[Rfam]
Bacterial large signal recognition particle RNA: a 265-nucleotide RNA from Firmicutes bacterium CAG:103.
The family's consensus secondary structure is taken from published work.
It scores 211 bits against the family's covariance model.
Its family is annotated with signal recognition particle, plasma membrane targeting and SRP-dependent cotranslational protein targeting to membrane, signal sequence recognition in the Gene Ontology.
RNA sequence: CUGCACUAGUCGGGGAGCCAGCGGUGUCCUGUACCUGCAAUCCGCUAUAGCAGGGAUGAAUUCCCGCCCCCGGAUAGGCCGAUGUGUCGUCUGCCCGCAGUAAGCGGCGUUGAAGGUUCGGUCCCGCGCAACGGAGCCCUGUGAACCAUGUCAGGCGGGGAACCGAGCAGCAUUAAGCAGGUCACUCCGUGUGCCGUGGGGGCGCCGGGCCCGAGCUGGCUGCUGUGGUAACGGGCAUGUCGUCUAUUCAAAGGUGGGUGUGCAG
Numbered sequence: 001c002u003g004c005a006c007u008a009g010u011c012g013g014g015g016a017g018c019c020a021g022c023g024g025u026g027u028c029c030u031g032u033a034c035c036u037g038c039a040a041u042c043c044g045c046u047a048u049a050g051c052a053g054g055g056a057u058g059a060a061u062u063c064c065c066g067c068c069c070c071c072g073g074a075u076a077g078g079c080c081g082a083u084g085u086g087u088c089g090u091c092u093g094c095c096c097g098c099a100g101u102a103a104g105c106g107g108c109g110u111u112g113a114a115g116g117u118u119c120g121g122u123c124c125c126g127c128g129c130a131a132c133g134g135a136g137c138c139c140u141g142u143g144a145a146c147c148a149u150g151u152c153a154g155g156c157g158g159g160g161a162a163c164c165g166a167g168c169a170g171c172a173u174u175a176a177g178c179a180g181g182u183c184a185c186u187c188c189g190u191g192u193g194c195c196g197u198g199g200g201g202g203c204g205c206c207g208g209g210c211c212c213g214a215g216c217u218g219g220c221u222g223c224u225g226u227g228g229u230a231a232c233g234g235g236c237a238u239g240u241c242g243u244c245u246a247u248u249c250a251a252a253g254g255u256g257g258g259u260g261u262g263c264a265g
Stems, first nucleotide, its partner, number of pairs: 001265006009057003012030004017025003034054005063258006072249005080242009092230002096227006104220002106217003115211008123200006129191002132189005138181005148173004156165003
Dot-bracket structure: ((((((..(((((((.(((...))).))))...(((((...........)))))))).....((((((...(((((...(((((((((...((..((((((..(((((......((((((((((((((((.(((((.(((((.....((((....(((....)))....))))...)))))...)))))))...))))))...))))))))...))).)).)))))).))...)))))))))..)))))...)))))).))))))